[Rfam]
RNA sequence: GUAAGAGUUGGGCGGGCUGACCAGCGUCAACGGCGACUCUUGCUUAAAAGCGCUACCGGUGGGAUAGAGACUGAAACAGCGCACAAACGGACGGCGAAGCUAGCAUCCGUGUCUCGCAUGGCUGGCGGGU
Numbered sequence: 001g002u003a004a005g006a007g008u009u010g011g012g013c014g015g016g017c018u019g020a021c022c023a024g025c026g027u028c029a030a031c032g033g034c035g036a037c038u039c040u041u042g043c044u045u046a047a048a049a050g051c052g053c054u055a056c057c058g059g060u061g062g063g064a065u066a067g068a069g070a071c072u073g074a075a076a077c078a079g080c081g082c083a084c085a086a087a088c089g090g091a092c093g094g095c096g097a098a099g100c101u102a103g104c105a106u107c108c109g110u111g112u113c114u115c116g117c118a119u120g121g122c123u124g125g126c127g128g129g130u
Base pairs, nucleotide, nucleotide: 001043002042003041004040005039006038007037008036009035010034031058032057033056050082051081052080053079054078068114069113070112071111087110088109089108090107091106099126100125101124102123103122104121

The record is a 130-nucleotide RNA sequence, which matches "Betaproteobacteria-1 RNA" in Rfam. The family's RNA type in Rfam is small RNA.